A member of the RNA family "c-di-GMP-I riboswitch aptamer" from Clostridium aciditolerans, 88 nucleotides long.

RNA sequence: UGCCGAUAAUAGCAAACUCGUCGAAAGGCGGGGACGCAAAGCUCUGGGUCUAAGGGACAUAUAAUCCUAUAAUUGCCAGGUUUCCGAA
Numbered sequence: 001u002g003c004c005g006a007u008a009a010u011a012g013c014a015a016a017c018u019c020g021u022c023g024a025a026a027g028g029c030g031g032g033g034a035c036g037c038a039a040a041g042c043u044c045u046g047g048g049u050c051u052a053a054g055g056g057a058c059a060u061a062u063a064a065u066c067c068u069a070u071a072a073u074u075g076c077c078a079g080g081u082u083u084c085c086g087a088a
Stems, first nucleotide, its partner, number of pairs: 012037002017032006040082004045078003048073002055067003

Notes: Gene Ontology term of the family: cyclic-di-GMP binding.